Rfam assigns this 119-nucleotide RNA sequence from Desulfocucumis palustris to the family "Molybdenum/Tungsten riboswitch aptamer (Moco RNA motif)". NCBI's taxonomy places the organism under Bacteria, Bacillota, Clostridia, Desulfocucumaceae, Desulfocucumis. For this family Rfam cites "in molybdenum cofactor and tungsten cofactor metabolism" (Regulski et al., Mol Microbiol, 2008). It scores 58 bits against the family's covariance model.
[Rfam]
RNA sequence: UGAAAAAAUAAUCUCCGGGCACGGCAUACCUUGUUUAAAAAAUGUGGUGGCCUUGCCGCAGGGUAUAUCGGGAAACUGAUAUGUCUCCCAUCGUGGAAAGGAGUACAUAGCUUUAUUAA
Numbered sequence: 001u002g003a004a005a006a007a008a009u010a011a012u013c014u015c016c017g018g019g020c021a022c023g024g025c026a027u028a029c030c031u032u033g034u035u036u037a038a039a040a041a042a043u044g045u046g047g048u049g050g051c052c053u054u055g056c057c058g059c060a061g062g063g064u065a066u067a068u069c070g071g072g073a074a075a076c077u078g079a080u081a082u083g084u085c086u087c088c089c090a091u092c093g094u095g096g097a098a099a100g101g102a103g104u105a106c107a108u109a110g111c112u113u114u115a116u117u118a119a
Stems, first nucleotide, its partner, number of pairs: 003113002013103004019056003023052003028048003035042002061086011087096002